[Rfam]
RNA sequence: AUCGUCAGCACUUUGGCGAUAUAGGGGAUCAGCGGCAGGUUCAGGAUCAGCAGAACCAGAUUGCCGAUAUACAUCGAAAUGAUCACUGCCCAAAAGAUCUGCGGAUUGUCGAUCAUCAACCGUGGGCC
Numbered sequence: 001a002u003c004g005u006c007a008g009c010a011c012u013u014u015g016g017c018g019a020u021a022u023a024g025g026g027g028a029u030c031a032g033c034g035g036c037a038g039g040u041u042c043a044g045g046a047u048c049a050g051c052a053g054a055a056c057c058a059g060a061u062u063g064c065c066g067a068u069a070u071a072c073a074u075c076g077a078a079a080u081g082a083u084c085a086c087u088g089c090c091c092a093a094a095a096g097a098u099c100u101g102c103g104g105a106u107u108g109u110c111g112a113u114c115a116u117c118a119a120c121c122g123u124g125g126g127c128c
Stems, first nucleotide, its partner, number of pairs: 003018006026128002029125003033122003038114003043109001045107004050102005057096001061093003067087001073083003
RNA: Ruegeria cis8 sRNA
Organism: Tritonibacter multivorans